About this RNA:
Shown here is a 147-nucleotide sequence from Caballeronia concitans, a member of the family "SAH (S-adenosyl-L-homocysteine) riboswitch aptamer". Rfam 15.1 lists 1,354 matches to the family in 1,132 species. The base pairs follow the family's consensus structure, which is taken from published work. The match comes from Rfam's covariance-model search (48 bits).
RNA sequence: GCCCCCGAGGAGCGUUGCGACGGAUGAUCCGCUGAAAAGCAGCAUCCGCCAGGCUCGGAGGCAUUCAAUCCGGACGGUUCGAAGGCGCUUUACCUUCAAGGUGAAAACGCCCGUCAAGCCACCGCAUUCGAACGGCGCUCACGUCAA
Numbered sequence: 001g002c003c004c005c006c007g008a009g010g011a012g013c014g015u016u017g018c019g020a021c022g023g024a025u026g027a028u029c030c031g032c033u034g035a036a037a038a039g040c041a042g043c044a045u046c047c048g049c050c051a052g053g054c055u056c057g058g059a060g061g062c063a064u065u066c067a068a069u070c071c072g073g074a075c076g077g078u079u080c081g082a083a084g085g086c087g088c089u090u091u092a093c094c095u096u097c098a099a100g101g102u103g104a105a106a107a108c109g110c111c112c113g114u115c116a117a118g119c120c121a122c123c124g125c126a127u128u129c130g131a132a133c134g135g136c137g138c139u140c141a142c143g144u145c146a147a
Base pairs, nucleotide, nucleotide: 002061003060005058006057007056008055021048022047023046024045025044026043